The family of this 225-nucleotide RNA is "IS605-orfB-I RNA".
Rfam's curators put it in the seed alignment.
By type it is a small RNA.

[Rfam]
RNA sequence: GCCUUAUACAGAUGUAGUCACGCAAGGCAGUGGCGCAUCUCCCUUUAAGGCAGUGUUCCAUUAGAAGCGUAAGUGAUAAGUCUGGUUGUGUGGCUCUUUAGUCGAAACCAGGUGAGCUUAUGUGGAACAGGUUAUCCGUAAGACCUUGGGUUGAAAAACCCUAAAAUUGACCUGGGAAUAAUGGGGCGCGGUUUCGUGUUUUUCGUUAUUUCCGGUUACGGUAAG
Numbered sequence: 001g002c003c004u005u006a007u008a009c010a011g012a013u014g015u016a017g018u019c020a021c022g023c024a025a026g027g028c029a030g031u032g033g034c035g036c037a038u039c040u041c042c043c044u045u046u047a048a049g050g051c052a053g054u055g056u057u058c059c060a061u062u063a064g065a066a067g068c069g070u071a072a073g074u075g076a077u078a079a080g081u082c083u084g085g086u087u088g089u090g091u092g093g094c095u096c097u098u099u100a101g102u103c104g105a106a107a108c109c110a111g112g113u114g115a116g117c118u119u120a121u122g123u124g125g126a127a128c129a130g131g132u133u134a135u136c137c138g139u140a141a142g143a144c145c146u147u148g149g150g151u152u153g154a155a156a157a158a159c160c161c162u163a164a165a166a167u168u169g170a171c172c173u174g175g176g177a178a179u180a181a182u183g184g185g186g187c188g189c190g191g192u193u194u195c196g197u198g199u200u201u202u203u204c205g206u207u208a209u210u211u212c213c214g215g216u217u218a219c220g221g222u223a224a225g
Stems, first nucleotide, its partner, number of pairs: 001051006008044001010040006017034005022028001067123008081112007092103002095100001129146005136221005141167001148161005172215015